Source information: Shown here is a 333-nucleotide RNA sequence from Pteropus vampyrus, a member of the family "7SK RNA". Rfam 15.1 lists 49,373 matches to the family in 668 species. From the family's description: 7SK was discovered as an abundant small nuclear RNA in the mid-70s but a possible function has only recently been suggested. Two independent studies have found that 7SK RNA binds the CDK9/cyclin T complex (known as elongation factor P-TEFb). P-TEFb activates transcription by phosphorylating the C-terminal domain of RNA polymerase II. This process is negatively regulated by the 7SK RNP. The secondary structure of 7SK RNA shown here was proposed by Wasserman and Steitz on the basis of chemical modification and enzymatic cleavage experiments. This family contains a number of annotated pseudogenes and 7SK derived repeats. The organism belongs to Pteropus, within Eukaryota. For this family Rfam cites "Transcription: surprising role for an elusive small nuclear RNA" (Blencowe, Curr Biol, 2002). By type it is a non-coding RNA gene.
RNA sequence: GGAUGUAAGGGCGAUCUGGUUGCAACAUCUGUCACCCCAUUGAUCGCCAGGGUUGAUUUGGCUGAUCUGACUGGCUAGGCAGGUGUCCUCUUCCUCCCUCACCGCUCCAUGUGUGUCCCUCCCAAAGCUACAUGCUCGGUCUAAGACGAUGACCUUCCCCAAUAAAGGAGAGGAUCAUUCUUCCGUCAAGGAUAUACAAGUAGCUGUGCUCCCCUGCUAGAACCUCCAAACAAGCUUUCAAGGUCCGUUUGUAGGAGAACGUGGGGCAGUCAAGAUUCCAAGACUCCAGACACAUCCAAAUGAGGCACUGCAUGUGGCAGUCUGUGUUUCUAA
Numbered sequence: 001g002g003a004u005g006u007a008a009g010g011g012c013g014a015u016c017u018g019g020u021u022g023c024a025a026c027a028u029c030u031g032u033c034a035c036c037c038c039a040u041u042g043a044u045c046g047c048c049a050g051g052g053u054u055g056a057u058u059u060g061g062c063u064g065a066u067c068u069g070a071c072u073g074g075c076u077a078g079g080c081a082g083g084u085g086u087c088c089u090c091u092u093c094c095u096c097c098c099u100c101a102c103c104g105c106u107c108c109a110u111g112u113g114u115g116u117c118c119c120u121c122c123c124a125a126a127g128c129u130a131c132a133u134g135c136u137c138g139g140u141c142u143a144a145g146a147c148g149a150u151g152a153c154c155u156u157c158c159c160c161a162a163u164a165a166a167g168g169a170g171a172g173g174a175u176c177a178u179u180c181u182u183c184c185g186u187c188a189a190g191g192a193u194a195u196a197c198a199a200g201u202a203g204c205u206g207u208g209c210u211c212c213c214c215u216g217c218u219a220g221a222a223c224c225u226c227c228a229a230a231c232a233a234g235c236u237u238u239c240a241a242g243g244u245c246c247g248u249u250u251g252u253a254g255g256a257g258a259a260c261g262u263g264g265g266g267c268a269g270u271c272a273a274g275a276u277u278c279c280a281a282g283a284c285u286c287c288a289g290a291c292a293c294a295u296c297c298a299a300a301u302g303a304g305g306c307a308c309u310g311c312a313u314g315u316g317g318c319a320g321u322c323u324g325u326g327u328u329u330c331u332a333a
Stems, first nucleotide, its partner, number of pairs: 001108003005102002008099004013093002018090002025086009035074002038069002042067004046062003116173002118168003122139002125136001127135002140162001148157002204274002209269002212266006224257004230252005300331001302328002305325002307321005